[Rfam]
RNA sequence: CUUCAACGACCCCAGCCACAACGGCUCCGACCGAUCCUGACCAUACGUAGCCAGAACAGCCUGCGCCUC
Numbered sequence: 001c002u003u004c005a006a007c008g009a010c011c012c013c014a015g016c017c018a019c020a021a022c023g024g025c026u027c028c029g030a031c032c033g034a035u036c037c038u039g040a041c042c043a044u045a046c047g048u049a050g051c052c053a054g055a056a057c058a059g060c061c062u063g064c065g066c067c068u069c
Base pairs, nucleotide, nucleotide: 014026015025016024017023027063032059037054038053039052041050043048
A member of the RNA family "ASpks TB sRNA" from Kutzneria kofuensis, 69 nucleotides long. By type it is an antisense RNA.